This 82-nucleotide sequence from Stanieria cyanosphaera belongs to the Rfam family "tRNA". By type it is a transfer RNA. NCBI's taxonomy places the organism under Bacteria, Cyanobacteriota, Pleurocapsales, Stanieria, Stanieria cyanosphaera. Gene Ontology term of the family: triplet codon-amino acid adaptor activity. The base pairs follow the family's consensus structure, which is taken from published work.
RNA sequence: GGGCGAAUGGCGAAAUUGGUAGACGCACCACACUCAAAAUGUGGCGUAGCAAUACAUGUCGGUUCGAGUCCGACUUUGCCCA
Numbered sequence: 001g002g003g004c005g006a007a008u009g010g011c012g013a014a015a016u017u018g019g020u021a022g023a024c025g026c027a028c029c030a031c032a033c034u035c036a037a038a039a040u041g042u043g044g045c046g047u048a049g050c051a052a053u054a055c056a057u058g059u060c061g062g063u064u065c066g067a068g069u070c071c072g073a074c075u076u077u078g079c080c081c082a
Stems, first nucleotide, its partner, number of pairs: 001081007010026003028044005058074005